[Rfam]
Annotation:
Rfam assigns this 71-nucleotide RNA sequence from Sitophilus oryzae to the family "mir-133 microRNA precursor family". Gene Ontology terms of the family: miRNA-mediated post-transcriptional gene silencing and RISC complex. From the family's description: mir-133 was first experimentally characterised in mouse and homologues have since been discovered in several other species. The mature sequence is excised from the 3' arm of the hairpin. On this family, see Lagos-Quintana et al., Curr Biol 2002: "Identification of tissue-specific microRNAs from mouse". The family has 127 seed sequences and 3,763 matches in Rfam 15.1. The source organism's lineage runs through Eukaryota, Eumetazoa, Pancrustacea, Aparaglossata and Sitophilus. Pairs were carried over by alignment from the consensus structure, which was predicted with PFOLD.

RNA sequence: UAGCUUUAGCUGGUUGAUUUCGGGUCAAAUGAUUUUUUGAAUAUUUGGUCCCCUUCAACCAGCUGUGGUUG
Numbered sequence: 001u002a003g004c005u006u007u008a009g010c011u012g013g014u015u016g017a018u019u020u021c022g023g024g025u026c027a028a029a030u031g032a033u034u035u036u037u038u039g040a041a042u043a044u045u046u047g048g049u050c051c052c053c054u055u056c057a058a059c060c061a062g063c064u065g066u067g068g069u070u071g
Base pairs, nucleotide, nucleotide: 003069004068005067008064009063010062011061012060013059014058015057016056017055022050023049025048026047027046028045029044030043031042